[Rfam]
RNA sequence: GACAGGCGUCACUUCACGACGGAUCGUCCGGCACGUACCUGCCGGUGAAGGGAGCAACAC
Numbered sequence: 001g002a003c004a005g006g007c008g009u010c011a012c013u014u015c016a017c018g019a020c021g022g023a024u025c026g027u028c029c030g031g032c033a034c035g036u037a038c039c040u041g042c043c044g045g046u047g048a049a050g051g052g053a054g055c056a057a058c059a060c
Base pairs, nucleotide, nucleotide: 010052012050013049014048015047016046028045029044030043031042032041033040

The family of this 60-nucleotide RNA sequence from Nocardioides islandensis is "msiK RNA". The base pairs follow the family's consensus structure, which is taken from published work. The family's RNA type in Rfam is cis-regulatory element.